A member of the RNA family "Small nucleolar RNA SNORD109A" from Microtus ochrogaster, 66 nucleotides long. From the family's description: Humans have two copies of the SNORD109 gene, SNORD109A and SNORD109B. Pairs were carried over by alignment from the consensus structure, which was predicted with WAR. Taxonomically the source falls in Microtus (Eukaryota, Metazoa, Gnathostomata, Dipnotetrapodomorpha).
RNA sequence: GGAUUGAUGAUGAUAAGAAGUCUCUGAGGACACUGACUGACUCAUACAAAUAGCAAUCUGAGGUCC
Numbered sequence: 001g002g003a004u005u006g007a008u009g010a011u012g013a014u015a016a017g018a019a020g021u022c023u024c025u026g027a028g029g030a031c032a033c034u035g036a037c038u039g040a041c042u043c044a045u046a047c048a049a050a051u052a053g054c055a056a057u058c059u060g061a062g063g064u065c066c
Stems, first nucleotide, its partner, number of pairs: 001066005

Clan: SNORD74 clan.
The literature on the family includes a 2001 paper in Hum Mol Genet by Runte et al., "The IC-SNURF-SNRPN transcript serves as a host for multiple small nucleolar RNA species and as an antisense RNA for UBE3A".